[Rfam]
RNA sequence: GCUACGUUGCGGCUCAUCAUUAGGCACUUUGCUAUCCUAAAGAAAUGCGAGCUGCCUUUUGAAGGGCAACAUCGUGGC
Numbered sequence: 001g002c003u004a005c006g007u008u009g010c011g012g013c014u015c016a017u018c019a020u021u022a023g024g025c026a027c028u029u030u031g032c033u034a035u036c037c038u039a040a041a042g043a044a045a046u047g048c049g050a051g052c053u054g055c056c057u058u059u060u061g062a063a064g065g066g067c068a069a070c071a072u073c074g075u076g077g078c
Base pairs, nucleotide, nucleotide: 004075005074006073008071009070012067013066014065015064017062018061019060023056024055028051029050030049031048032047
The family of this 78-nucleotide RNA sequence from Cephus cinctus is "mir-980 microRNA precursor family". NCBI's taxonomy places the organism under Eukaryota, Metazoa, Ecdysozoa, Arthropoda, Cephus. The base pairs follow the family's consensus structure, which was predicted with RNAalifold. Its family is annotated with miRNA-mediated post-transcriptional gene silencing and RISC complex in the Gene Ontology.